[Rfam]
RNA sequence: UGGCAGUGAUGAGCAAUUUGAGAUAGUCAUGCACCACUCUGAUUUAGAUCUGUAAAAGGAUCUUUGUCCUGAGAAUUUCCCUACCAUAUUUUAUACUGAGCCA
Numbered sequence: 001u002g003g004c005a006g007u008g009a010u011g012a013g014c015a016a017u018u019u020g021a022g023a024u025a026g027u028c029a030u031g032c033a034c035c036a037c038u039c040u041g042a043u044u045u046a047g048a049u050c051u052g053u054a055a056a057a058g059g060a061u062c063u064u065u066g067u068c069c070u071g072a073g074a075a076u077u078u079c080c081c082u083a084c085c086a087u088a089u090u091u092u093a094u095a096c097u098g099a100g101c102c103a
Stems, first nucleotide, its partner, number of pairs: 001103004
Dot-bracket structure: ((((...............................................................................................))))
Rfam assigns this 103-nucleotide RNA from Brassica napus to the family "Small nucleolar RNA Z221/R21b". By type it is a C/D-box small nucleolar RNA. The literature on the family includes a 2003 paper in Nucleic Acids Res by Chen et al., "The high diversity of snoRNAs in plants: identification and comparative study of 120 snoRNA genes from Oryza sativa".